[Rfam]
RNA sequence: CGCUUAUCAAGAAAGACGGAGGGACCGGCCCUGUGAUGUCUUAGCAACCCUGAACCCCUGUGGCAGCAGGGUGCUAAUUCCGGUUCCGAAUGGCACAUAAGCCUUCGGAAGCAGAUGAGCG
Numbered sequence: 001c002g003c004u005u006a007u008c009a010a011g012a013a014a015g016a017c018g019g020a021g022g023g024a025c026c027g028g029c030c031c032u033g034u035g036a037u038g039u040c041u042u043a044g045c046a047a048c049c050c051u052g053a054a055c056c057c058c059u060g061u062g063g064c065a066g067c068a069g070g071g072u073g074c075u076a077a078u079u080c081c082g083g084u085u086c087c088g089a090a091u092g093g094c095a096c097a098u099a100a101g102c103c104u105u106c107g108g109a110a111g112c113a114g115a116u117g118a119g120c121g
Base pairs, nucleotide, nucleotide: 001121002120003119004118005117006116007115008114013042014041015040016039017038021031022030023029025083026082027081028080043075044074045073046072048071049070050069051068052067079113084110085109086108087107088106089105